[Rfam]
RNA sequence: AUAACGUAUAAUGAUAGCUCUCGUAUAAUUCGGGGAAUAUGGCCCGAAGUCUCUACCUAAAGACCGUAAAUCUUUGGACUACGGGAGAAAGCGAUGACGAG
Numbered sequence: 001a002u003a004a005c006g007u008a009u010a011a012u013g014a015u016a017g018c019u020c021u022c023g024u025a026u027a028a029u030u031c032g033g034g035g036a037a038u039a040u041g042g043c044c045c046g047a048a049g050u051c052u053c054u055a056c057c058u059a060a061a062g063a064c065c066g067u068a069a070a071u072c073u074u075u076g077g078a079c080u081a082c083g084g085g086a087g088a089a090a091g092c093g094a095u096g097a098c099g100a101g
Stems, first nucleotide, its partner, number of pairs: 018087008029048006057077007
RNA: Purine riboswitch aptamer
Organism: Paenibacillus aquistagni